[Rfam]
A member of the RNA family "MIR7502 microRNA precursor family" from Gossypium hirsutum, 144 nucleotides long. The match comes from Rfam's covariance-model search (104 bits).
RNA sequence: UGUGAAAAAAUUCAUUCAUUUUUACUGUUAAAAACUACCGUAGCUGACAAAACAACUAGACAAUUACAUGUGACAUGCCACAUAUAACUCAUUUUGCACAUAUGAAUCAAUUUUUAACAGUAGAAAUGGAUGAAAUUUUUAACA
Number, nucleotide and partner (000 for none) at each position: 001u000002g143003u142004g000005a140006a139007a138008a137009a136010a000011u134012u133013c132014a131015u130016u129017c000018a127019u126020u125021u124022u123023u122024a121025c120026u119027g000028u117029u116030a115031a114032a113033a112034a000035c000036u000037a000038c000039c000040g000041u000042a000043g000044c000045u000046g000047a000048c000049a000050a000051a000052a000053c000054a000055a000056c000057u000058a000059g000060a000061c000062a000063a000064u000065u000066a000067c000068a000069u000070g000071u000072g000073a000074c000075a000076u000077g000078c000079c000080a000081c000082a000083u000084a000085u000086a000087a000088c000089u000090c000091a000092u000093u000094u000095u000096g000097c000098a000099c000100a000101u000102a000103u000104g000105a000106a000107u000108c000109a000110a000111u000112u033113u032114u031115u030116a029117a028118c000119a026120g025121u024122a023123g022124a021125a020126a019127u018128g000129g016130a015131u014132g013133a012134a011135a000136u009137u008138u007139u006140u005141a000142a003143c002144a000